[Rfam]
RNA sequence: AUACAAAAACAUAAAAACAUCGACUGUUUUAUAUUUUGGCUAGUCGUUCACGUAAACUUUGGUCGGUUUGGGGUGGACGACUUCUUUUUUAUUUUGCU
Numbered sequence: 001a002u003a004c005a006a007a008a009a010c011a012u013a014a015a016a017a018c019a020u021c022g023a024c025u026g027u028u029u030u031a032u033a034u035u036u037u038g039g040c041u042a043g044u045c046g047u048u049c050a051c052g053u054a055a056a057c058u059u060u061g062g063u064c065g066g067u068u069u070g071g072g073g074u075g076g077a078c079g080a081c082u083u084c085u086u087u088u089u090u091a092u093u094u095u096g097c098u
Stems, first nucleotide, its partner, number of pairs: 005037004014030006043081009
This 98-nucleotide sequence from Staphylococcus epidermidis belongs to the Rfam family "ctRNA".
The source organism's lineage runs through Bacteria, Bacilli, Caryophanales, Staphylococcaceae and Staphylococcus epidermidis.
From the family's description: Rolling circle replication plasmids contain a number of mechanisms to maintain a low copy number. One of these methods is to transcribe a small RNA called ctRNA (for counter-transcribed RNA) than is transcribed on the opposite strand to RepB the replication initiation protein. ctRNA binds to the mRNA of repB and causes translational inhibition.
Gene Ontology terms of the family: plasmid copy number maintenance and mRNA binding.
For this family Rfam cites "pT181 plasmid replication is regulated by a countertranscript-driven transcriptional attenuator" (Novick et al., Cell, 1989).